[Rfam]
RNA sequence: GUCUCCUGUGCCUGCUGUGCUGAUAAUCAGUGUGUGACGUUGGCUGGCUCAGUUCAGCAGGAACAGGGGAC
Number, nucleotide and partner (000 for none) at each position: 001g000002u000003c069004u068005c067006c066007u000008g064009u063010g000011c061012c060013u059014g000015c057016u056017g055018u000019g053020c052021u051022g050023a049024u000025a000026a000027u047028c046029a045030g044031u043032g000033u000034g000035u000036g000037a000038c000039g000040u000041u000042g000043g031044c030045u029046g028047g027048c000049u023050c022051a021052g020053u019054u000055c017056a016057g015058c000059a013060g012061g011062a000063a009064c008065a000066g006067g005068g004069g003070a000071c000